This 137-nucleotide RNA from Aquarana catesbeiana belongs to the Rfam family "Small Cajal body specific RNA 11". Pairs were carried over by alignment from the consensus structure, which was predicted with RNAalifold. The match comes from Rfam's covariance-model search (62 bits). The family has 24 seed sequences and 853 matches in Rfam 15.1. Gene Ontology terms of the family: Cajal body, nucleolus and RNA processing. A reference for the family is Darzacq et al. (2002), "Cajal body-specific small nuclear RNAs: a novel class of 2'-O-methylation and pseudouridylation guide RNAs", EMBO J.
[Rfam]
RNA sequence: CCGUCCAGUCUUCCUCGCAGACGCCCCUCUUCAAGUCAUGAUUUGUGGGAAGCAAUGGCUGGACGUACAGUAAACCUGUCUGUUUAGGAGGGACGCACACAGUAAAGUGCUCUCCCUUAAAGGCUUGACAGGACAUG
Number, nucleotide and partner (000 for none) at each position: 001c000002c065003g064004u063005c062006c061007a060008g059009u000010c058011u057012u000013c000014c000015u000016c000017g000018c000019a000020g000021a000022c000023g000024c000025c000026c052027c000028u050029c049030u048031u047032c000033a000034a000035g000036u000037c000038a000039u000040g000041a000042u000043u000044u000045g000046u000047g031048g030049g029050a028051a000052g026053c000054a000055a000056u000057g011058g010059c008060u007061g006062g005063a004064c003065g002066u000067a000068c000069a000070g000071u000072a000073a000074a000075c132076c131077u130078g129079u128080c127081u000082g124083u123084u122085u121086a000087g000088g118089a117090g116091g115092g114093a113094c000095g110096c109097a108098c107099a000100c000101a000102g000103u000104a000105a000106a000107g098108u097109g096110c095111u000112c000113u093114c092115c091116c090117u089118u088119a000120a000121a085122g084123g083124c082125u000126u000127g080128a079129c078130a077131g076132g075133a000134c000135a000136u000137g000